Rfam assigns this 103-nucleotide RNA from Beutenbergia cavernae to the family "Glycine riboswitch aptamer". The match comes from Rfam's covariance-model search (45 bits). NCBI's taxonomy places the organism under Bacteria, Bacillati, Actinomycetota, Beutenbergiaceae, Beutenbergia cavernae. The base pairs follow the family's consensus structure.
[Rfam]
RNA sequence: GCCACUCUGGAAAGCAGGGCGCCCCGCGCCCUCGCCCAAGGUGAAAGGCUCCCCGACCAGCUGGGGCGCCGAAGCUCUCAGGCACCGCAACAGAGGGGGAACG
Numbered sequence: 001g002c003c004a005c006u007c008u009g010g011a012a013a014g015c016a017g018g019g020c021g022c023c024c025c026g027c028g029c030c031c032u033c034g035c036c037c038a039a040g041g042u043g044a045a046a047g048g049c050u051c052c053c054c055g056a057c058c059a060g061c062u063g064g065g066g067c068g069c070c071g072a073a074g075c076u077c078u079c080a081g082g083c084a085c086c087g088c089a090a091c092a093g094a095g096g097g098g099g100a101a102c103g
Stems, first nucleotide, its partner, number of pairs: 002098002005095005016032004034083003038078001041077001043075001047070002